[Rfam]
Actinomyces-1 RNA: a 108-nucleotide sequence from Actinomyces sp. 2119.
RNA sequence: GGCACCGCUGGACAGGAUCGGCCCUGAGGGGAGGGGAACCCGAUGAGGGGCCGGGACUGAGUUCGGUGCGGGUUUAGGGACCCCGUUCCGGGCGCUCUGGCGAAGGAG
Numbered sequence: 001g002g003c004a005c006c007g008c009u010g011g012a013c014a015g016g017a018u019c020g021g022c023c024c025u026g027a028g029g030g031g032a033g034g035g036g037a038a039c040c041c042g043a044u045g046a047g048g049g050g051c052c053g054g055g056a057c058u059g060a061g062u063u064c065g066g067u068g069c070g071g072g073u074u075u076a077g078g079g080a081c082c083c084c085g086u087u088c089c090g091g092g093c094g095c096u097c098u099g100g101c102g103a104a105g106g107a108g
Base pairs, nucleotide, nucleotide: 006102007101008100009099010098011097012096013059014058015057018054019053020052021051022050023049024048028041029040030039061093062092063091064090065089066088069085070084071083072082
The source organism's lineage runs through Bacteria, Bacillati, Actinomycetales, Actinomycetaceae and Actinomyces. Pairs were carried over by alignment from the consensus structure, which is taken from published work.